The family of this 169-nucleotide RNA from Streptococcus downei is "Group II catalytic intron D1-D4-3". The source organism's lineage runs through Bacteria, Bacilli, Lactobacillales, Streptococcaceae and Streptococcus downei.
RNA sequence: GCUAUCAUGAGGUAGCAGGGAGAGGAAGAGAUAGCGAAAUCAAGUCAUUACGAAUAGAAACGUGAUACUAAGGCGCCUAUAGCGGAUAAGGUGGUCAUAAACACUAAAGCUCCAAAAGGUAAUCGUAACCUAUAGUCGUAAAUCACAAGUGUAACCGAGAAAAGAUGUU
Numbered sequence: 001g002c003u004a005u006c007a008u009g010a011g012g013u014a015g016c017a018g019g020g021a022g023a024g025g026a027a028g029a030g031a032u033a034g035c036g037a038a039a040u041c042a043a044g045u046c047a048u049u050a051c052g053a054a055u056a057g058a059a060a061c062g063u064g065a066u067a068c069u070a071a072g073g074c075g076c077c078u079a080u081a082g083c084g085g086a087u088a089a090g091g092u093g094g095u096c097a098u099a100a101a102c103a104c105u106a107a108a109g110c111u112c113c114a115a116a117a118g119g120u121a122a123u124c125g126u127a128a129c130c131u132a133u134a135g136u137c138g139u140a141a142a143u144c145a146c147a148a149g150u151g152u153a154a155c156c157g158a159g160a161a162a163a164g165a166u167g168u169u
Base pairs, nucleotide, nucleotide: 001016002015003014004013005012006011031169035164040158041157046151047150048149049148062146063145064144065143066142073139074138075137077135078134079133080132081131082130084113085112086111087109090105091104092103093102